[Rfam]
Source information
The record is an 86-nucleotide sequence from Merluccius polli, which matches "mir-187 microRNA precursor family" in Rfam.
RNA sequence: UGGCCCGGGCCGGUGGCUGCAACACAGGACAUGGGACCAGCCUCUCAAACCCCGCUCGUGUCUUGUGUUGCAGCCAGCGGACCAGG
Numbered sequence: 001u002g003g004c005c006c007g008g009g010c011c012g013g014u015g016g017c018u019g020c021a022a023c024a025c026a027g028g029a030c031a032u033g034g035g036a037c038c039a040g041c042c043u044c045u046c047a048a049a050c051c052c053c054g055c056u057c058g059u060g061u062c063u064u065g066u067g068u069u070g071c072a073g074c075c076a077g078c079g080g081a082c083c084a085g086g
Stems, first nucleotide, its partner, number of pairs: 011079002015075004020070011032058004

The family has 27 seed sequences and 636 matches in Rfam 15.1. NCBI's taxonomy places the organism under Eukaryota, Deuterostomia, Clupeocephala, Gadoidei, Merluccius. Gene Ontology terms of the family: miRNA-mediated post-transcriptional gene silencing and RISC complex.